[Rfam]
tRNA: a 74-nucleotide sequence from Rhinopomastus cyanomelas. It scores 53 bits against the family's covariance model. Rfam classes the family as a transfer RNA. NCBI's taxonomy places the organism under Eukaryota, Eumetazoa, Gnathostomata, Coelurosauria, Rhinopomastus. Pairs were carried over by alignment from the consensus structure, which is taken from published work.
RNA sequence: CUCUCUGUGGUGCAAUUCGUUAGCACAUUUGGUUGUUAACCAAAAGGUUGCUGGUUCGAGCCCAUCCAGGGACA
Numbered sequence: 001c002u003c004u005c006u007g008u009g010g011u012g013c014a015a016u017u018c019g020u021u022a023g024c025a026c027a028u029u030u031g032g033u034u035g036u037u038a039a040c041c042a043a044a045a046g047g048u049u050g051c052u053g054g055u056u057c058g059a060g061c062c063c064a065u066c067c068a069g070g071g072a073c074a
Stems, first nucleotide, its partner, number of pairs: 002072006010026004028044005050066001052064003